[Rfam]
RNA sequence: CGGAUGAAUCUAGUCGAGGGAAGUCGGCAAAAUGGCUCCGUAACUUCGGGAGAAGGAGUGCCAGUGACCUUGUCAAGGGGUCGCUGGUCGCAGUGACCAGGGAGGUCCGACUGUUCAAUACAAACACAGGUCUUAGCUAGUCUGAAAAGAUGUGUACUAAGGCCGACGCCUGCCCAGUGCUGGUACGUGAACCCCGGGUUCAACCGGGCGAAGCGCCAGUAAACGGCGGGGGUAACUAUAACCCUCUUAAGGUAGCGAAAUUCCUUGUCGGGUAAGUUCCGACCUGCAUGAAUGGCGUAACGAGACCUCCACUGUCCCCGACUAGAAUCCGGUGAACCUACCAUUCCGGUGCAAAGGCCGGAGA
Numbered sequence: 001c002g003g004a005u006g007a008a009u010c011u012a013g014u015c016g017a018g019g020g021a022a023g024u025c026g027g028c029a030a031a032a033u034g035g036c037u038c039c040g041u042a043a044c045u046u047c048g049g050g051a052g053a054a055g056g057a058g059u060g061c062c063a064g065u066g067a068c069c070u071u072g073u074c075a076a077g078g079g080g081u082c083g084c085u086g087g088u089c090g091c092a093g094u095g096a097c098c099a100g101g102g103a104g105g106u107c108c109g110a111c112u113g114u115u116c117a118a119u120a121c122a123a124a125c126a127c128a129g130g131u132c133u134u135a136g137c138u139a140g141u142c143u144g145a146a147a148a149g150a151u152g153u154g155u156a157c158u159a160a161g162g163c164c165g166a167c168g169c170c171u172g173c174c175c176a177g178u179g180c181u182g183g184u185a186c187g188u189g190a191a192c193c194c195c196g197g198g199u200u201c202a203a204c205c206g207g208g209c210g211a212a213g214c215g216c217c218a219g220u221a222a223a224c225g226g227c228g229g230g231g232g233u234a235a236c237u238a239u240a241a242c243c244c245u246c247u248u249a250a251g252g253u254a255g256c257g258a259a260a261u262u263c264c265u266u267g268u269c270g271g272g273u274a275a276g277u278u279c280c281g282a283c284c285u286g287c288a289u290g291a292a293u294g295g296c297g298u299a300a301c302g303a304g305a306c307c308u309c310c311a312c313u314g315u316c317c318c319c320g321a322c323u324a325g326a327a328u329c330c331g332g333u334g335a336a337c338c339u340a341c342c343a344u345u346c347c348g349g350u351g352c353a354a355a356g357g358c359c360g361g362a363g364a
Stems, first nucleotide, its partner, number of pairs: 001331004009326008018317003035059005044049001060088012089093001101310007108302002112126003129164008137154001140151004167297004172227003177224002179220005186215003193208005228246006247251001267283006345362005

Rfam assigns this 364-nucleotide part of an RNA from Methanococcus aeolicus to the family "Archaeal large subunit ribosomal RNA". Taxonomically the source falls in Methanococcus aeolicus (Archaea, Methanobacteriati, Methanococci, Methanococcus). The family is grouped with related families in Rfam's "LSU clan".